This 92-nucleotide RNA from Plasticicumulans acidivorans belongs to the Rfam family "Glycine riboswitch aptamer". The match comes from Rfam's covariance-model search (63 bits). Rfam links the family to the GO term glycine biosynthetic process.
RNA sequence: CCCGCUCCCGCGGGAGAGACCGCAUGCCCGGCAUGCGGCGCCGAAGGCGCAAGUGCCCGAAAACGCUCAGGCAAAAGGACCGCGGGAACACA
Number, nucleotide and partner (000 for none) at each position: 001c000002c000003c000004g000005c000006u087007c086008c085009c084010g083011c082012g081013g080014g000015a000016g000017a000018g000019a000020c038021c037022g036023c035024a034025u033026g000027c000028c000029c000030g000031g000032c000033a025034u024035g023036c022037g021038g020039c000040g072041c071042c070043g068044a067045a000046g000047g066048c065049g064050c000051a000052a000053g000054u059055g000056c000057c000058c000059g054060a000061a000062a000063a000064c049065g048066c047067u044068c043069a000070g042071g041072c040073a000074a000075a000076a000077g000078g000079a000080c013081c012082g011083c010084g009085g008086g007087a006088a000089c000090a000091c000092a000